[Rfam]
RNA: MIR2619 microRNA precursor family
RNA sequence: AAACAACCCCUAUGUAUUGGAUCUUUGACAGUUUUGGCCCCAAGGCCACUUUUGAUUAGUCUUCGCUGACGUGUCACUCACAAUGGUCGACACGUGGCACCUUACUUAAGGGAUAUAGGUGUCAUGUCAGCGAAGACUAAGUCAAAAGUGGCCUUGGGGGCCAAAACUGCCAAAGAUCCAAUACAUAAGGGACUGUUU
Numbered sequence: 001a002a003a004c005a006a007c008c009c010c011u012a013u014g015u016a017u018u019g020g021a022u023c024u025u026u027g028a029c030a031g032u033u034u035u036g037g038c039c040c041c042a043a044g045g046c047c048a049c050u051u052u053u054g055a056u057u058a059g060u061c062u063u064c065g066c067u068g069a070c071g072u073g074u075c076a077c078u079c080a081c082a083a084u085g086g087u088c089g090a091c092a093c094g095u096g097g098c099a100c101c102u103u104a105c106u107u108a109a110g111g112g113a114u115a116u117a118g119g120u121g122u123c124a125u126g127u128c129a130g131c132g133a134a135g136a137c138u139a140a141g142u143c144a145a146a147a148g149u150g151g152c153c154u155u156g157g158g159g160g161c162c163a164a165a166a167c168u169g170c171c172a173a174a175g176a177u178c179c180a181a182u183a184c185a186u187a188a189g190g191g192a193c194u195g196u197u198u
Base pairs, nucleotide, nucleotide: 001198002197004195005194008191011187012186013185014184015183016182017181018180019179020178021177022176023175024174025173026172027171029169030168031167032166033165034164035163036162037161038160039159040157041156042155043154069127070126072124073123075121076120077119078118